[Rfam]
RNA sequence: CGUGUCGCUGUCAGUAACAAGGAUUCAUCCUGUUGUGACUCUGCAGGUUGACAGGAAAUCUCUGUUACUGUGAGCGAGUGU
Numbered sequence: 001c002g003u004g005u006c007g008c009u010g011u012c013a014g015u016a017a018c019a020a021g022g023a024u025u026c027a028u029c030c031u032g033u034u035g036u037g038a039c040u041c042u043g044c045a046g047g048u049u050g051a052c053a054g055g056a057a058a059u060c061u062c063u064g065u066u067a068c069u070g071u072g073a074g075c076g077a078g079u080g081u
Stems, first nucleotide, its partner, number of pairs: 012070008021061005029055007037048001039046001